[Rfam]
RNA sequence: GGAAGUUAAGAAACUGUUUCUUAAUUUUUAAUUAAAAAAACUAAAAAUCGAUUCUUAAAUAAGGACUUUAAGAAACGGUUCUUAGCCUUUUUAGUUAAAAGUUAAGAAACAAUUUCUUAACUUCC
Numbered sequence: 001g002g003a004a005g006u007u008a009a010g011a012a013a014c015u016g017u018u019u020c021u022u023a024a025u026u027u028u029u030a031a032u033u034a035a036a037a038a039a040a041c042u043a044a045a046a047a048u049c050g051a052u053u054c055u056u057a058a059a060u061a062a063g064g065a066c067u068u069u070a071a072g073a074a075a076c077g078g079u080u081c082u083u084a085g086c087c088u089u090u091u092u093a094g095u096u097a098a099a100a101g102u103u104a105a106g107a108a109a110c111a112a113u114u115u116c117u118u119a120a121c122u123u124c125c
Stems, first nucleotide, its partner, number of pairs: 001125013015111024041085004046080002
A member of the RNA family "MIR9563 microRNA precursor family" from Brassica oleracea, 125 nucleotides long. It scores 110 bits against the family's covariance model. Gene Ontology terms of the family: RISC complex and miRNA-mediated post-transcriptional gene silencing. The family has 2 seed sequences and 5,832 matches in Rfam 15.1.